Overview
The record is an 80-nucleotide RNA sequence from Pelovirga terrestris, which matches "c-di-GMP-I riboswitch aptamer" in Rfam. The match comes from Rfam's covariance-model search (72 bits). NCBI's taxonomy places the organism under Bacteria, Pseudomonadati, Thermodesulfobacteriota, Desulfuromonadia, Pelovirga.

RNA sequence: CAACCGAAAGGGCAAAACCAGAGUAAUCUGGUGACGCAAAGCCACGGAUCCCGCCCAAGUGGGACCGCCGGGUUGCCGAA
Numbered sequence: 001c002a003a004c005c006g007a008a009a010g011g012g013c014a015a016a017a018c019c020a021g022a023g024u025a026a027u028c029u030g031g032u033g034a035c036g037c038a039a040a041g042c043c044a045c046g047g048a049u050c051c052c053g054c055c056c057a058a059g060u061g062g063g064a065c066c067g068c069c070g071g072g073u074u075g076c077c078g079a080a
Stems, first nucleotide, its partner, number of pairs: 012037002017032006040074004045070003049064006